[Rfam]
RNA sequence: GCCGGUCCUCGGUAGUGGUUCCCGGGAAGCGUCCCGGGGGCUUCGAUCGAAGACCGGC
Number, nucleotide and partner (000 for none) at each position: 001g058002c057003c056004g055005g054006u053007c052008c000009u050010c049011g048012g047013u046014a000015g000016u000017g042018g041019u040020u039021c038022c037023c036024g035025g034026g033027a032028a000029g000030c000031g000032u027033c026034c025035c024036g023037g022038g021039g020040g019041c018042u017043u000044c000045g000046a013047u012048c011049g010050a009051a000052g007053a006054c005055c004056g003057g002058c001
The record is a 58-nucleotide RNA from Amycolatopsis sp. SID8362, which matches "Actino-pnp RNA" in Rfam. Pairs were carried over by alignment from the consensus structure, which is taken from published work. The family's RNA type in Rfam is cis-regulatory element.